[Rfam]
RNA sequence: GGGAUAUGAUGAUAAACCAUUUGGUCCGUGUUUCUGAUUCAACCGUGACUGAUAAAUCUUUACCAAUAUCUGAUCUC
Numbered sequence: 001g002g003g004a005u006a007u008g009a010u011g012a013u014a015a016a017c018c019a020u021u022u023g024g025u026c027c028g029u030g031u032u033u034c035u036g037a038u039u040c041a042a043c044c045g046u047g048a049c050u051g052a053u054a055a056a057u058c059u060u061u062a063c064c065a066a067u068a069u070c071u072g073a074u075c076u077c
Base pairs, nucleotide, nucleotide: 001077002076003075004074